[Rfam]
RNA sequence: CUAUCCUAAAACAACGAAAGCCCUACCUCUCUUUCGUCCUUGCGGCUCCAAUGACCGCGCCAGUGUGAAUCAGAAUGACGAAAUGUAA
Numbered sequence: 001c002u003a004u005c006c007u008a009a010a011a012c013a014a015c016g017a018a019a020g021c022c023c024u025a026c027c028u029c030u031c032u033u034u035c036g037u038c039c040u041u042g043c044g045g046c047u048c049c050a051a052u053g054a055c056c057g058c059g060c061c062a063g064u065g066u067g068a069a070u071c072a073g074a075a076u077g078a079c080g081a082a083a084u085g086u087a088a
Stems, first nucleotide, its partner, number of pairs: 034068003039063002041059005047053001
Rfam assigns this 88-nucleotide RNA sequence from Paenibacillus nanensis to the family "BsrC". The base pairs follow the family's consensus structure, which was predicted with CMfinder. A search with the family's covariance model found it, with a score of 84 bits. Rfam 15.1 lists 572 matches to the family in 553 species. Rfam classes the family as a small RNA. The source organism's lineage runs through Bacteria, Bacillota, Bacilli, Paenibacillaceae and Paenibacillus. For this family Rfam cites "Novel small RNA-encoding genes in the intergenic regions of Bacillus subtilis" (Saito et al., Gene, 2008).